This 77-nucleotide RNA sequence from Alligator mississippiensis belongs to the Rfam family "Mammalian CPEB3 ribozyme". Rfam's curators write: The mammalian CPEB3 ribozyme is a self cleaving RNA located in the second intron of the CPEB3 gene which belongs to a family of genes regulating messenger RNA polyadenylation. The source organism's lineage runs through Eukaryota, Euteleostomi, Sarcopterygii, Archosauria and Alligator.
RNA sequence: CCAGCAGCCACAGUGGUCAUAGCAGAACUGCUCAUGUCACAGCCCUGUCAGAGUCUAAUGAAUCUAUAAAUUCUGCU
Number, nucleotide and partner (000 for none) at each position: 001c000002c000003a000004g000005c000006a000007g000008c000009c000010a000011c000012a000013g045014u000015g044016g043017u042018c000019a000020u000021a077022g076023c075024a074025g073026a072027a071028c000029u039030g038031c000032u000033c000034a000035u000036g000037u000038c030039a029040c000041a000042g017043c016044c015045c013046u000047g000048u000049c000050a065051g064052a063053g000054u061055c060056u000057a000058a000059u000060g055061a054062a000063u052064c051065u050066a000067u000068a000069a000070a000071u027072u026073c025074u024075g023076c022077u021